[Rfam]
The family of this 320-nucleotide RNA from Alphacoronavirus neovisontis is "Alphacoronavirus 5'UTR". Clan: Coronavirus 5' UTR.
RNA sequence: ACUUUUAAAGAUAAGUGAGUGUAGCGUAGCUGCCUACUUUCUUUAACUUGACUCUAAGUCAAAUCUACUCAACUAAACGAAAUUUUGUUGUUUCCCAUUUAAUGGGAGCAACAUCUUUGGUAAUUUCGUUUCAUUCAUAGCUUGUUGUCCAUAUUGAGUCUAGGAGUUUGGCUAGCUGUGUGGGUUCCGUCUCACAUAGUAGGUGUGUUGGCUAGUUCCGUCUAGUCUUCACGUGGAUCUCAGUUCCGUCUGGGUGAAACCUAACCCCCCUCACUAUGGUGUUCAAGCAUUUUAGGAUCCUCGUCAAUGAGGACCAGGAA
Numbered sequence: 001a002c003u004u005u006u007a008a009a010g011a012u013a014a015g016u017g018a019g020u021g022u023a024g025c026g027u028a029g030c031u032g033c034c035u036a037c038u039u040u041c042u043u044u045a046a047c048u049u050g051a052c053u054c055u056a057a058g059u060c061a062a063a064u065c066u067a068c069u070c071a072a073c074u075a076a077a078c079g080a081a082a083u084u085u086u087g088u089u090g091u092u093u094c095c096c097a098u099u100u101a102a103u104g105g106g107a108g109c110a111a112c113a114u115c116u117u118u119g120g121u122a123a124u125u126u127c128g129u130u131u132c133a134u135u136c137a138u139a140g141c142u143u144g145u146u147g148u149c150c151a152u153a154u155u156g157a158g159u160c161u162a163g164g165a166g167u168u169u170g171g172c173u174a175g176c177u178g179u180g181u182g183g184g185u186u187c188c189g190u191c192u193c194a195c196a197u198a199g200u201a202g203g204u205g206u207g208u209u210g211g212c213u214a215g216u217u218c219c220g221u222c223u224a225g226u227c228u229u230c231a232c233g234u235g236g237a238u239c240u241c242a243g244u245u246c247c248g249u250c251u252g253g254g255u256g257a258a259a260c261c262u263a264a265c266c267c268c269c270c271u272c273a274c275u276a277u278g279g280u281g282u283u284c285a286a287g288c289a290u291u292u293u294a295g296g297a298u299c300c301u302c303g304u305c306a307a308u309g310a311g312g313a314c315c316a317g318g319a320a
Base pairs, nucleotide, nucleotide: 006045007044008043009042010041011040013038015037021033022032023031024030025029048062049061050060051059052058079127080126081125082124083123084122086113087112088111089110090109091108093107094106095105096104097103098102142286143285144284150278151277152276153275155273156272157271163268164267166265167264168263178197179196180195181194182193183192184191207229210227211226212225213224214223215222233261239254240253241252242251243250
Dot-bracket structure: .....((((((.(.(.....(((((...)))))...)).))))))..(((((.....)))))................((((((.((((((.((((((...))))))))))))........))))))..............(((.....((((.(((.....((.(((.........(((((((......))))))).........(..((((((......)))))).)...(.....(((((......)))))......).))).))..))).)))).....)))..................................
Pairs were carried over by alignment from the consensus structure. By type it is a cis-regulatory element. Taxonomically the source falls in Alphacoronavirus neovisontis (Viruses, Orthocoronavirinae, Alphacoronavirus, Minacovirus). Rfam's curators write: The first 150 to 200 nucleotides within the 5' UTR of alphacoronaviruses are highly structured and shown to be conserved on the structural level among alphacoronaviruses. The sequence is in the family's curated seed alignment.